[Rfam]
A member of the RNA family "Small nucleolar RNA SNORA72" from Jaculus jaculus, 136 nucleotides long.

RNA sequence: UUACAAGUACUCUCACUGUUCUUUCUGAUUUUGUAAUAAUCCAGACAAGCUAAACAUUCACAGUAUUAAGACCAUGCAUGUGCCUCUAGACCUAGCUCUUUUGCUAGGUCUGGUUUUAUAAAUGCUGGUGAUAAAC
Numbered sequence: 001u002u003a004c005a006a007g008u009a010c011u012c013u014c015a016c017u018g019u020u021c022u023u024u025c026u027g028a029u030u031u032u033g034u035a036a037u038a039a040u041c042c043a044g045a046c047a048a049g050c051u052a053a054a055c056a057u058u059c060a061c062a063g064u065a066u067u068a069a070g071a072c073c074a075u076g077c078a079u080g081u082g083c084c085u086c087u088a089g090a091c092c093u094a095g096c097u098c099u100u101u102u103g104c105u106a107g108g109u110c111u112g113g114u115u116u117u118a119u120a121a122a123u124g125c126u127g128g129u130g131a132u133a134a135a136c
Stems, first nucleotide, its partner, number of pairs: 017047004027041004071129004076125002086113010
Dot-bracket structure: ................((((......((((.......))))..)))).......................((((.((........((((((((((........))))))))))..........)))))).......
About this RNA: Taxonomically the source falls in Jaculus (Eukaryota, Glires, Dipodoidea, Dipodinae). About the family: U72 is a member of the H/ACA class of snoRNAs. The literature on the family includes a 1997 paper in Genes Dev by Ganot et al., "The family of box ACA small nucleolar RNAs is defined by an evolutionarily conserved secondary structure and ubiquitous sequence elements essential for RNA accumulation". Gene Ontology terms of the family: RNA processing and nucleolus.